RNA sequence: CGAAGUGCCCUCUCGAUCGGGUGGACGGAAGCAUGGAGAACUCCCAUCCUCUCAGCUCGGAGGGCAUUUUCGCGUUCAAACCAGGCGCCAGCAAGGCAUAUGCGACGGCGCAUUCCG
Numbered sequence: 001c002g003a004a005g006u007g008c009c010c011u012c013u014c015g016a017u018c019g020g021g022u023g024g025a026c027g028g029a030a031g032c033a034u035g036g037a038g039a040a041c042u043c044c045c046a047u048c049c050u051c052u053c054a055g056c057u058c059g060g061a062g063g064g065c066a067u068u069u070u071c072g073c074g075u076u077c078a079a080a081c082c083a084g085g086c087g088c089c090a091g092c093a094a095g096g097c098a099u100a101u102g103c104g105a106c107g108g109c110g111c112a113u114u115c116c117g
Stems, first nucleotide, its partner, number of pairs: 002070011014059003018055001019053003023049003028044001030042002100113005
RNA: Actinobacteria sRNA Ms_IGR-7
Organism: Frankia nepalensis